[Rfam]
RNA sequence: CCCGCACUUAGACGGAAAGACCCCGUGCACCUUUACUACAACUUGACAUUGAUGUCGGUAUUGUGCUGUGCAGAGUAGGUGGGAGGCUGUGAAAUUGGCUCGUUAGGGUCGAUGGAGCCAUCGUUGAGAUACCACCCUGCGCAAUGCUGAUAUCUAACCCACGCCCGUAAUCCGGGUGGGAGACAGUGUCAGGCGGGUAGUUUGACUGGGGCGGUCGCCUCCUAAAGCGUAACGGAGGCGUGCGAAGGUUCCCUCAGGCUGUUUGGAAAUCAGCCGCAGAGCGCAAUGGUAUAAGGGAGCUUAACUGCGAGACACACACGUCGAGCAGGUGCGAAAGCGGGUCAUAGUGAUCCGGUGGUUCCGAAUGGAAGGGCCAUCGCUCAACGGAUAAAAGGUACGCCGGGGAUAACAGGCUGAUCUUGCCCAAGAGUUCAUAUCGACGGCAAGGUUUGGCACCUCGAUGUCGACUCAUCGCAUCCUGGGGCUGGAGCAGGUCCCAAGGGUUCGGCUGUUCGCCGAUUAAUAGCGGUACGUGAGUUGGGUUCAGAACGUCGCGAGACAGUUCGGUCCCUAUCUAGUGUGGGCGUA
Dot-bracket structure: ((((((((.(((.((......((((.(((((((.((((...(((((((..((((((((((((((((.(.........(((((..(((......((((((((....))))))))...)))............)))))).))))))))))))))))....((.((((((.....))))))))......)))))))....))))..((((.....))))((((((...........))))))(.((....((((((((.(((((.........)))))...))((......))....))))))....((((..(((......)))..)))).(((....))).))..........(((((((.((........))))))))).....)......)))))..))))))........(((.((((((((...((.......))...)))))))..))))..........(((((((((((..((.((((((......))))))...)).(((((.....)))))......)))))..)..)))).).....(((((((....))).))))....))..)))))))))))....